[Rfam]
RNA: Small nucleolar RNA SNORA5
Organism: Eurystomus gularis
RNA sequence: UGCAGCCCUGUCAAAUUCGUUCCCUGCCUCCUCCGUGGUGGGGACCGGCCAACCGGCUGCCACAGCAAGUCCUGUGGUCCACGAGCCCCACGUCCCCUUCCCGUGGGACACUGGGGGGGUGAAACCACAGCACAGACACGU
Numbered sequence: 001u002g003c004a005g006c007c008c009u010g011u012c013a014a015a016u017u018c019g020u021u022c023c024c025u026g027c028c029u030c031c032u033c034c035g036u037g038g039u040g041g042g043g044a045c046c047g048g049c050c051a052a053c054c055g056g057c058u059g060c061c062a063c064a065g066c067a068a069g070u071c072c073u074g075u076g077g078u079c080c081a082c083g084a085g086c087c088c089c090a091c092g093u094c095c096c097c098u099u100c101c102c103g104u105g106g107g108a109c110a111c112u113g114g115g116g117g118g119g120u121g122a123a124a125c126c127a128c129a130g131c132a133c134a135g136a137c138a139c140g141u
Stems, first nucleotide, its partner, number of pairs: 002060004018047002021044008074133003078129001086119004091115001